Description:
This 211-nucleotide sequence from Oryza meridionalis belongs to the Rfam family "MIR812 microRNA precursor family". The source organism's lineage runs through Eukaryota, Viridiplantae, Petrosaviidae, Oryzinae and Oryza. Its family is annotated with RISC complex and miRNA-mediated post-transcriptional gene silencing in the Gene Ontology.
RNA sequence: UUUAAGUGCAGUCAUGAGUUUCUAUGCCCAAUUUUAAUUGUCCGUCUUAUUUAAAAAAUUUUUUAAAAAAAUAAAAAACAUAGGCCACGCAUAAGGUAUUAUUCAUGUUUUAUCAUCUCAUAACAACAAAAAUACUAAUUACAAAAAGAAAAAAAAAUCAAAUAAGACGAACGACUAAAGUUGGGCACGAAAACUCAUGGUUGCAUUUAAA
Numbered sequence: 001u002u003u004a005a006g007u008g009c010a011g012u013c014a015u016g017a018g019u020u021u022c023u024a025u026g027c028c029c030a031a032u033u034u035u036a037a038u039u040g041u042c043c044g045u046c047u048u049a050u051u052u053a054a055a056a057a058a059u060u061u062u063u064u065a066a067a068a069a070a071a072u073a074a075a076a077a078a079c080a081u082a083g084g085c086c087a088c089g090c091a092u093a094a095g096g097u098a099u100u101a102u103u104c105a106u107g108u109u110u111u112a113u114c115a116u117c118u119c120a121u122a123a124c125a126a127c128a129a130a131a132a133u134a135c136u137a138a139u140u141a142c143a144a145a146a147a148g149a150a151a152a153a154a155a156a157a158u159c160a161a162a163u164a165a166g167a168c169g170a171a172c173g174a175c176u177a178a179a180g181u182u183g184g185g186c187a188c189g190a191a192a193a194c195u196c197a198u199g200g201u202u203g204c205a206u207u208u209a210a211a
Base pairs, nucleotide, nucleotide: 027185028184029183030182031181032180033179034178035177036176038174039173040172041171043169044168045167046166047165048164049163050162051161052160